[Rfam]
The family of this 133-nucleotide RNA from Desulfallas thermosapovorans is "c-di-AMP riboswitch aptamer (ydaO/yuaA leader)". It scores 93 bits against the family's covariance model. Taxonomically the source falls in Desulfallas thermosapovorans (Bacteria, Bacillota, Clostridia, Eubacteriales).

RNA sequence: UAAAAUUAAACGCCGAAUUCCUGCAUUGCGGAAGCGGGGGAACCAUUUCUCGGGGUGAAUUGCUAACAAGCAAGGGGCUACCUUUCGGUCCUAACCCGCCAGCUAACCCCGUAGGUGUAGAAAGCGAGCAUGG
Numbered sequence: 001u002a003a004a005a006u007u008a009a010a011c012g013c014c015g016a017a018u019u020c021c022u023g024c025a026u027u028g029c030g031g032a033a034g035c036g037g038g039g040g041a042a043c044c045a046u047u048u049c050u051c052g053g054g055g056u057g058a059a060u061u062g063c064u065a066a067c068a069a070g071c072a073a074g075g076g077g078c079u080a081c082c083u084u085u086c087g088g089u090c091c092u093a094a095c096c097c098g099c100c101a102g103c104u105a106a107c108c109c110c111g112u113a114g115g116u117g118u119a120g121a122a123a124g125c126g127a128g129c130a131u132g133g
Stems, first nucleotide, its partner, number of pairs: 011117004018033003034112006044052001053097003061072004075091004